The record is a 203-nucleotide RNA sequence from Oryza meridionalis, which matches "MIR1435 microRNA precursor family" in Rfam. The family has 3 seed sequences and 1,765 matches in Rfam 15.1.

RNA sequence: UGACUUUUUCCUUUGUCAAACUUUUUUAAAGUUUGACCAAGUUUGUAGAAAAAUAUAGGAACAUUUCCAACACAAAAAGCAAACAUAUUAUCAAAAUAUAUUCAAUGUUACAUUUAAUUAAACUAAUUUGGUGUUGUAGAUGCUGCUACAUUUUCCUAUAAACUUGGUCAAAUCUAAAGAAGUUUGAUUAGGAAAAAAGUCAA
Numbered sequence: 001u002g003a004c005u006u007u008u009u010c011c012u013u014u015g016u017c018a019a020a021c022u023u024u025u026u027u028a029a030a031g032u033u034u035g036a037c038c039a040a041g042u043u044u045g046u047a048g049a050a051a052a053a054u055a056u057a058g059g060a061a062c063a064u065u066u067c068c069a070a071c072a073c074a075a076a077a078a079g080c081a082a083a084c085a086u087a088u089u090a091u092c093a094a095a096a097u098a099u100a101u102u103c104a105a106u107g108u109u110a111c112a113u114u115u116a117a118u119u120a121a122a123c124u125a126a127u128u129u130g131g132u133g134u135u136g137u138a139g140a141u142g143c144u145g146c147u148a149c150a151u152u153u154u155c156c157u158a159u160a161a162a163c164u165u166g167g168u169c170a171a172a173u174c175u176a177a178a179g180a181a182g183u184u185u186g187a188u189u190a191g192g193a194a195a196a197a198a199g200u201c202a203a
Stems, first nucleotide, its partner, number of pairs: 005198005011192003015188012032172005046158003050154004056148003060144001062142005068136002073130004
Description:
Rfam links the family to the GO terms miRNA-mediated post-transcriptional gene silencing and RISC complex.